RNA: small nucleolar RNA snoR135
RNA sequence: AAGGCAGGGAUUGUGUGUAUCGGCGUAGUGCUAAUUUCAGUGCACUCUGUUCCGAAAGUAUUCCCUGCGACAUCAAUCUUGAAGGGGGGAAGGUGGGCAGUUGUGAUUCAUCUCCAUUGAAUUUUCAACAAUCAUCUUCCCUACAUUG
Numbered sequence: 001a002a003g004g005c006a007g008g009g010a011u012u013g014u015g016u017g018u019a020u021c022g023g024c025g026u027a028g029u030g031c032u033a034a035u036u037u038c039a040g041u042g043c044a045c046u047c048u049g050u051u052c053c054g055a056a057a058g059u060a061u062u063c064c065c066u067g068c069g070a071c072a073u074c075a076a077u078c079u080u081g082a083a084g085g086g087g088g089g090a091a092g093g094u095g096g097g098c099a100g101u102u103g104u105g106a107u108u109c110a111u112c113u114c115c116a117u118u119g120a121a122u123u124u125u126c127a128a129c130a131a132u133c134a135u136c137u138u139c140c141c142u143a144c145a146u147u148g
Stems, first nucleotide, its partner, number of pairs: 004068007015045006086142011100129004